[Rfam]
RNA: c-di-GMP-I riboswitch aptamer
RNA sequence: AAGAUUUUUCAGCAAACCCGGUGAAAACCGGGGACGCAAAGCCAAGGGUCUAAGCCGAUCGGUAUGACAGCCGGCUGCCGGA
Numbered sequence: 001a002a003g004a005u006u007u008u009u010c011a012g013c014a015a016a017c018c019c020g021g022u023g024a025a026a027a028c029c030g031g032g033g034a035c036g037c038a039a040a041g042c043c044a045a046g047g048g049u050c051u052a053a054g055c056c057g058a059u060c061g062g063u064a065u066g067a068c069a070g071c072c073g074g075c076u077g078c079c080g081g082a
Stems, first nucleotide, its partner, number of pairs: 012037002017032006040076004046072002048068003055062002